[Rfam]
RNA sequence: GCCCCUGUCUUUGGGGAGUAGCCGGCUUCCGCCCGGAAGCGCCUGCAUCAACAUACUCGGUCGCACAGAUCGUGGUGCAGGCAGCCGUCAGGUUGGCAAGACCAUCGACACAUCACGCGACCGGUCGGGCGCGGCGAUGUGUCAUGGUUCUCUGCCCGACCUUGAGUGCUC
Numbered sequence: 001g002c003c004c005c006u007g008u009c010u011u012u013g014g015g016g017a018g019u020a021g022c023c024g025g026c027u028u029c030c031g032c033c034c035g036g037a038a039g040c041g042c043c044u045g046c047a048u049c050a051a052c053a054u055a056c057u058c059g060g061u062c063g064c065a066c067a068g069a070u071c072g073u074g075g076u077g078c079a080g081g082c083a084g085c086c087g088u089c090a091g092g093u094u095g096g097c098a099a100g101a102c103c104a105u106c107g108a109c110a111c112a113u114c115a116c117g118c119g120a121c122c123g124g125u126c127g128g129g130c131g132c133g134g135c136g137a138u139g140u141g142u143c144a145u146g147g148u149u150c151u152c153u154g155c156c157c158g159a160c161c162u163u164g165a166g167u168g169c170u171c
Base pairs, nucleotide, nucleotide: 025040026039027038041082042081043080044079045078046077047076048075049074050073058072059071060070061069062068083170084169085168086164087163